[Rfam]
RNA sequence: GGAUCGGGAGGCCACCAUUGGGCAGGUGGUCAGGCAUUGAUCCGAACCCCCUGUUUCGAAGGGCGCAGUACCGGGAGGCCCCGACGGUACAUGCG
Number, nucleotide and partner (000 for none) at each position: 001g043002g042003a041004u040005c039006g000007g000008g000009a000010g031011g030012c029013c028014a027015c026016c025017a000018u000019u000020g000021g000022g000023c000024a000025g016026g015027u014028g013029g012030u011031c010032a000033g000034g000035c000036a000037u000038u000039g005040a004041u003042c002043c001044g000045a000046a000047c000048c000049c000050c000051c000052u000053g000054u000055u000056u000057c000058g000059a000060a000061g000062g000063g000064c095065g094066c093067a092068g090069u089070a088071c087072c086073g085074g000075g000076a000077g000078g000079c000080c000081c000082c000083g000084a000085c073086g072087g071088u070089a069090c068091a000092u067093g066094c065095g064
Rhodo-rpoB RNA: a 95-nucleotide RNA. The sequence is in the family's curated seed alignment. Rfam classes the family as a cis-regulatory element.